[Rfam]
This 98-nucleotide RNA sequence from Staphylococcus lugdunensis belongs to the Rfam family "ctRNA". Rfam links the family to the GO terms plasmid copy number maintenance and mRNA binding. About the family: Rolling circle replication plasmids contain a number of mechanisms to maintain a low copy number. The family's consensus secondary structure is taken from published work.
RNA sequence: AUACAAAAUAUAAAAAAACAACUUAGUGUUUUUUCUUUGGGUAAGUCGCAUUCACAAACUUUGGUCAGGGCGUGAGCGACUUCUUUUUUUAUUUUGUU
Numbered sequence: 001a002u003a004c005a006a007a008a009u010a011u012a013a014a015a016a017a018a019c020a021a022c023u024u025a026g027u028g029u030u031u032u033u034u035c036u037u038u039g040g041g042u043a044a045g046u047c048g049c050a051u052u053c054a055c056a057a058a059c060u061u062u063g064g065u066c067a068g069g070g071c072g073u074g075a076g077c078g079a080c081u082u083c084u085u086u087u088u089u090u091a092u093u094u095u096g097u098u
Stems, first nucleotide, its partner, number of pairs: 005037002008034001014033007045080005052075004